The record is a 95-nucleotide RNA sequence, which matches "PGK RNA" in Rfam. The base pairs follow the family's consensus structure, which is taken from published work.
[Rfam]
RNA sequence: AAAUAAUCUUAUCUACGCUAAACAAAGACAUAUGUUUAAUGAGAAAGAAAACUCCUAAAGAUAAGCGAGUCACACUAAAUACUGAUAAUAUUUAG
Number, nucleotide and partner (000 for none) at each position: 001a000002a000003a000004u000005a000006a000007u000008c065009u064010u063011a062012u061013c060014u000015a000016c000017g000018c000019u000020a000021a000022a000023c000024a000025a000026a000027g000028a000029c000030a000031u000032a000033u000034g000035u000036u000037u000038a000039a056040u000041g054042a053043g052044a000045a000046a000047g000048a000049a000050a000051a000052c043053u042054c041055c000056u039057a000058a000059a000060g013061a012062u011063a010064a009065g008066c000067g000068a000069g000070u000071c000072a000073c000074a000075c095076u094077a093078a092079a091080u090081a089082c000083u000084g000085a000086u000087a000088a000089u081090a080091u079092u078093u077094a076095g075